This 265-nucleotide RNA from Anaerobacillus alkaliphilus belongs to the Rfam family "Bacterial large signal recognition particle RNA".
From the family's description: The signal recognition particle (SRP) is a universally conserved ribonucleoprotein involved in the co-translational targeting of proteins to membranes.
The organism belongs to Anaerobacillus, within Bacteria.
The family's consensus secondary structure is taken from published work.
The family's RNA type in Rfam is non-coding RNA gene.

[Rfam]
RNA sequence: CCGUGCUAGAUGGGGAGAUGGCGGUGCCCUGUAACUUGCAACCCGCCUUAGCAAGAUUGAACUCCUUCUAGCGGUUCGGUUCAUGUAAGGAUUGACUUAUGCAAGCGGUGUUGACCGUUGGGGUCUACGCAACAGAAAUCUAUGAAUUUGGUCAGGCCUGGAAGGGAGCAGCCAUAAGUAGAUAAUUCUGUGUGCCGUAGGUAGCCCUAACCGAGCUAGCUACAUGAGUAACACUUAUGUGACCGGGUCAAUAGAAGGUGCACGG
Numbered sequence: 001c002c003g004u005g006c007u008a009g010a011u012g013g014g015g016a017g018a019u020g021g022c023g024g025u026g027c028c029c030u031g032u033a034a035c036u037u038g039c040a041a042c043c044c045g046c047c048u049u050a051g052c053a054a055g056a057u058u059g060a061a062c063u064c065c066u067u068c069u070a071g072c073g074g075u076u077c078g079g080u081u082c083a084u085g086u087a088a089g090g091a092u093u094g095a096c097u098u099a100u101g102c103a104a105g106c107g108g109u110g111u112u113g114a115c116c117g118u119u120g121g122g123g124u125c126u127a128c129g130c131a132a133c134a135g136a137a138a139u140c141u142a143u144g145a146a147u148u149u150g151g152u153c154a155g156g157c158c159u160g161g162a163a164g165g166g167a168g169c170a171g172c173c174a175u176a177a178g179u180a181g182a183u184a185a186u187u188c189u190g191u192g193u194g195c196c197g198u199a200g201g202u203a204g205c206c207c208u209a210a211c212c213g214a215g216c217u218a219g220c221u222a223c224a225u226g227a228g229u230a231a232c233a234c235u236u237a238u239g240u241g242a243c244c245g246g247g248u249c250a251a252u253a254g255a256a257g258g259u260g261c262a263c264g265g
Stems, first nucleotide, its partner, number of pairs: 001265006009058003012030004017025001019023001035055005064258007073249005081242009093230002097227005105220002107217003115213001117211007124201006130192002133190005138183006149174004157166003